[Rfam]
RNA sequence: UGGGGCGUCGCCAAGUGGUAAGGCAUCGGUUUUUGGUAUCGACAUCCGCAGGUUCGAAUCCUGCCGCCCCAG
Numbered sequence: 001u002g003g004g005g006c007g008u009c010g011c012c013a014a015g016u017g018g019u020a021a022g023g024c025a026u027c028g029g030u031u032u033u034u035g036g037u038a039u040c041g042a043c044a045u046c047c048g049c050a051g052g053u054u055c056g057a058a059u060c061c062u063g064c065c066g067c068c069c070c071a072g
Stems, first nucleotide, its partner, number of pairs: 001071007010024003026042005048064005
A member of the RNA family "tRNA" from Pelagibacterium luteolum, 72 nucleotides long. The base pairs follow the family's consensus structure, which is taken from published work. Rfam classes the family as a transfer RNA.